Small nucleolar RNA Z103: a 91-nucleotide sequence from Salix koriyanagi. A reference for the family is Chen et al. (2003), "The high diversity of snoRNAs in plants: identification and comparative study of 120 snoRNA genes from Oryza sativa", Nucleic Acids Res. Rfam links the family to the GO terms RNA processing and nucleolus. The base pairs follow the family's consensus structure, which was predicted with PFOLD. A search with the family's covariance model found it, with a score of 81 bits. The organism belongs to Salix, within Eukaryota. Rfam classes the family as a C/D-box small nucleolar RNA.

[Rfam]
RNA sequence: AUGGAGAUGAUGAUUAUUUCCCCAAAUGAUCGAAGCUGAACAAACUGAGCGAUUUUUCUCGAUUGAGAACCAAGCUAGGAUUCUGAUCCAU
Number, nucleotide and partner (000 for none) at each position: 001a091002u090003g089004g088005a087006g000007a000008u000009g000010a000011u000012g000013a000014u000015u000016a000017u000018u000019u000020c000021c000022c000023c000024a000025a000026a000027u000028g000029a000030u000031c000032g000033a000034a000035g000036c000037u000038g000039a000040a000041c000042a000043a000044a000045c000046u000047g000048a000049g000050c000051g000052a000053u000054u000055u000056u000057u000058c000059u000060c000061g000062a000063u000064u000065g000066a000067g000068a000069a000070c000071c000072a000073a000074g000075c000076u000077a000078g000079g000080a000081u000082u000083c000084u000085g000086a000087u005088c004089c003090a002091u001